[Rfam]
RNA: UnaL2 LINE 3' element
Organism: Sinocyclocheilus rhinocerous
RNA sequence: GUAUUCCUCAACUGUAAGUCGCUUUGGAUAAAAGCAUCUGCCAAAUGAAUAAAA
Number, nucleotide and partner (000 for none) at each position: 001g000002u000003a000004u000005u000006c000007c000008u000009c000010a000011a000012c000013u043014g041015u040016a039017a000018g000019u000020c000021g035022c034023u033024u032025u031026g000027g000028a000029u000030a000031a025032a024033a023034g022035c021036a000037u000038c000039u016040g015041c014042c000043a013044a000045a000046u000047g000048a000049a000050u000051a000052a000053a000054a000